[Rfam]
RNA sequence: AUACUCCCUCUGUAUCAGAAUAUAAGACGUUUUUUGACACCAUGAUAGUGUCAAAAAGCGUCUUAUAUUCUGAUAUGGAGGGAGUAU
Number, nucleotide and partner (000 for none) at each position: 001a000002u000003a085004c084005u083006c000007c081008c080009u079010c078011u077012g000013u075014a074015u073016c072017a071018g000019a069020a068021u067022a066023u065024a064025a063026g062027a061028c060029g059030u058031u057032u056033u055034u054035u053036g052037a051038c050039a049040c048041c000042a000043u000044g000045a000046u000047a000048g040049u039050g038051u037052c036053a035054a034055a033056a032057a031058g030059c029060g028061u027062c026063u025064u024065a023066u022067a021068u020069u019070c000071u017072g016073a015074u014075a013076u000077g011078g010079a009080g008081g007082g000083a005084g004085u003086a000087u000
Record summary: MIR1120/MIR1122 microRNA precursor family: an 87-nucleotide sequence from Triticum turgidum. Rfam 15.1 lists 44,765 matches to the family in 8 species. For this family Rfam cites "Cloning and characterization of microRNAs from wheat (Triticum aestivum L.)" (Yao et al., Genome Biol, 2007). Pairs were carried over by alignment from the consensus structure, which was predicted with RNAalifold. Lineage of the source: Eukaryota > Embryophyta > Poaceae > Triticum > Triticum turgidum.